[Rfam]
RNA sequence: GUUCCUUUUUCCUAUGCAUAUACUUCUUUGUGGAUCUGGUCUAAAGAGGUAUAGCGCAUGGGAAAAUGGAGC
Numbered sequence: 001g002u003u004c005c006u007u008u009u010u011c012c013u014a015u016g017c018a019u020a021u022a023c024u025u026c027u028u029u030g031u032g033g034a035u036c037u038g039g040u041c042u043a044a045a046g047a048g049g050u051a052u053a054g055c056g057c058a059u060g061g062g063a064a065a066a067u068g069g070a071g072c
Stems, first nucleotide, its partner, number of pairs: 008065010019053003023049008